[Rfam]
RNA sequence: UCGAUCUUAUGAUGAAAUAUUUCGGAUGUAAACACAGACCUGUUCUGAAAGCGCAAAACCGUGUGGAUUUUUCCGUUGCCUUCCUUCUGACAAGAUCA
Numbered sequence: 001u002c003g004a005u006c007u008u009a010u011g012a013u014g015a016a017a018u019a020u021u022u023c024g025g026a027u028g029u030a031a032a033c034a035c036a037g038a039c040c041u042g043u044u045c046u047g048a049a050a051g052c053g054c055a056a057a058a059c060c061g062u063g064u065g066g067a068u069u070u071u072u073c074c075g076u077u078g079c080c081u082u083c084c085u086u087c088u089g090a091c092a093a094g095a096u097c098a
Stems, first nucleotide, its partner, number of pairs: 003097003023075004
Background
Shown here is a 98-nucleotide RNA sequence from Aspergillus uvarum, a member of the family "Small nucleolar RNA Z13/snr52". The family has 42 seed sequences and 1,203 matches in Rfam 15.1. The match comes from Rfam's covariance-model search (90 bits). By type it is a C/D-box small nucleolar RNA. The family's consensus secondary structure was predicted with PFOLD.